[Rfam]
RNA sequence: GCCAGCGUGGCGAAAUCGGUAGACGCAGCGGAUUCAAAAUCCGCCGGGGUCAAACCCGUGUCGGUUCGAGUCCGACCGCUGGUA
Numbered sequence: 001g002c003c004a005g006c007g008u009g010g011c012g013a014a015a016u017c018g019g020u021a022g023a024c025g026c027a028g029c030g031g032a033u034u035c036a037a038a039a040u041c042c043g044c045c046g047g048g049g050u051c052a053a054a055c056c057c058g059u060g061u062c063g064g065u066u067c068g069a070g071u072c073c074g075a076c077c078g079c080u081g082g083u084a
Stems, first nucleotide, its partner, number of pairs: 001083007010026003028044005060076005

Description
The record is an 84-nucleotide RNA sequence from Halotalea alkalilenta, which matches "tRNA" in Rfam. The organism belongs to Halotalea, within Bacteria.